Rfam assigns this 61-nucleotide sequence from Drosophila gunungcola to the family "mir-1013 microRNA precursor family".
Nucleotides: 061
Stems, first nucleotide, its partner, number of pairs: 001059008010050003014046004019040006
Number, partner (000 for none) and nucleotide at each position: 001059g002058u003057g004056a005055g006054u007053u008052u009000c010050g011049u012048a013000c014046a015045c016044u017043u018000a019040a020039u021038u022037a023036a024035u025000a026000a027000a028000u029000g030000a031000a032000g033000c034000a035024a036023u037022u038021a039020a040019u041000a042000a043017a044016a045015g046014u047000a048012u049011g050010c051000c052008g053007a054006a055005c056004u057003c058002g059001c060000a061000g